[Rfam]
RNA: Bacterial RNase P class A
Organism: Acetivibrio clariflavus
RNA sequence: UGAGUAAGUCAGAUAGUCGCGUGUAUGAUACCGAAAGGUUGUACAUGAGGAAAGUCCGGGCUCCAUAGGGCAGGGUGCCGGGUAACCCCCGGUGAAGGCGACUUCAAGGAUAGUGCAACAGAGAUAUACCGCCUGUUGGAAAUUCGUUUUCCGGCAUGGCAAGGGUGGAAAGGUGAGGUAAGAGCUCACCAGCGGCAUGGCGACUUGCCGGCUAUGUAAACCCCACCUGGAGCAACACCGCAAGAGGGACGUUAAGGUGGCCCGCUAGUCCCGGGUAGGUGGCUUGAACUUUACAGUAAUGUAAAGUCUAGAUAGAUGACUAUCGAAUACAGAACCCGGCUUAUAGACUUGCUCAAUAA
Numbered sequence: 001u002g003a004g005u006a007a008g009u010c011a012g013a014u015a016g017u018c019g020c021g022u023g024u025a026u027g028a029u030a031c032c033g034a035a036a037g038g039u040u041g042u043a044c045a046u047g048a049g050g051a052a053a054g055u056c057c058g059g060g061c062u063c064c065a066u067a068g069g070g071c072a073g074g075g076u077g078c079c080g081g082g083u084a085a086c087c088c089c090c091g092g093u094g095a096a097g098g099c100g101a102c103u104u105c106a107a108g109g110a111u112a113g114u115g116c117a118a119c120a121g122a123g124a125u126a127u128a129c130c131g132c133c134u135g136u137u138g139g140a141a142a143u144u145c146g147u148u149u150u151c152c153g154g155c156a157u158g159g160c161a162a163g164g165g166u167g168g169a170a171a172g173g174u175g176a177g178g179u180a181a182g183a184g185c186u187c188a189c190c191a192g193c194g195g196c197a198u199g200g201c202g203a204c205u206u207g208c209c210g211g212c213u214a215u216g217u218a219a220a221c222c223c224c225a226c227c228u229g230g231a232g233c234a235a236c237a238c239c240g241c242a243a244g245a246g247g248g249a250c251g252u253u254a255a256g257g258u259g260g261c262c263c264g265c266u267a268g269u270c271c272c273g274g275g276u277a278g279g280u281g282g283c284u285u286g287a288a289c290u291u292u293a294c295a296g297u298a299a300u301g302u303a304a305a306g307u308c309u310a311g312a313u314a315g316a317u318g319a320c321u322a323u324c325g326a327a328u329a330c331a332g333a334a335c336c337c338g339g340c341u342u343a344u345a346g347a348c349u350u351g352c353u354c355a356a357u358a359a
Stems, first nucleotide, its partner, number of pairs: 001355010011344001012324007020047009052342003056339005061232004068263004073228005078092005093107001094105004108223002113221002115217003129164002131160003134156009172190006192212001193210005199204001236281004246272005256266003288307008